[Rfam]
RNA sequence: AUCCUUGCUAAGUAGUAGUGCCGCAGGUAAUUAAAAUAAUCAUUUACCUGCUCUCUACUGCUUAACAAGGUAU
Numbered sequence: 001a002u003c004c005u006u007g008c009u010a011a012g013u014a015g016u017a018g019u020g021c022c023g024c025a026g027g028u029a030a031u032u033a034a035a036a037u038a039a040u041c042a043u044u045u046a047c048c049u050g051c052u053c054u055c056u057a058c059u060g061c062u063u064a065a066c067a068a069g070g071u072a073u
Stems, first nucleotide, its partner, number of pairs: 001073002003070004009064010023051007
Background: The family of this 73-nucleotide RNA from Saccoglossus kowalevskii is "mir-252 microRNA precursor family". On this family, see Li et al., BMC Genomics 2009: "Direct sequencing and expression analysis of a large number of miRNAs in Aedes aegypti and a multi-species survey of novel mosquito miRNAs". Pairs were carried over by alignment from the consensus structure, which was predicted with RNAalifold. The family is grouped with related families in Rfam's "mir-252 microRNA precursor family".